Overview:
Rfam assigns this 85-nucleotide sequence from Dethiosulfatibacter aminovorans to the family "c-di-GMP-I riboswitch aptamer". Taxonomically the source falls in Dethiosulfatibacter aminovorans (Bacteria, Bacillati, Tissierellia, Dethiosulfatibacter).
[Rfam]
RNA sequence: AUCUGAUAAGGGUAAUCCUGUUAAAAGACAGGUGCACAAAGUUAAGUUCUAAGGUGUGCAGCACUAUGAAUGUUUAACUGCCGGA
Numbered sequence: 001a002u003c004u005g006a007u008a009a010g011g012g013u014a015a016u017c018c019u020g021u022u023a024a025a026a027g028a029c030a031g032g033u034g035c036a037c038a039a040a041g042u043u044a045a046g047u048u049c050u051a052a053g054g055u056g057u058g059c060a061g062c063a064c065u066a067u068g069a070a071u072g073u074u075u076a077a078c079u080g081c082c083g084g085a
Stems, first nucleotide, its partner, number of pairs: 012037002017032006040079004045074002047070003054064004